[Rfam]
The record is a 71-nucleotide RNA from Anopheles gambiae, which matches "Pistol ribozyme" in Rfam. NCBI's taxonomy places the organism under Eukaryota, Ecdysozoa, Mandibulata, Pancrustacea, Anopheles gambiae.
RNA sequence: ACUCGACUAAGCGAGUAUAAAAAGGUUUCAAGCUUAGAGCGUUGAUAGGGAUAAAAACCUAUCAGGUAACA
Numbered sequence: 001a002c003u004c005g006a007c008u009a010a011g012c013g014a015g016u017a018u019a020a021a022a023a024g025g026u027u028u029c030a031a032g033c034u035u036a037g038a039g040c041g042u043u044g045a046u047a048g049g050g051a052u053a054a055a056a057a058c059c060u061a062u063c064a065g066g067u068a069a070c071a
Base pairs, nucleotide, nucleotide: 001016002015003014004013007037008036009035010034011033025070026069027068032040042065043064044063045062046061047060048059049058
Gene Ontology term of the family: catalytic activity.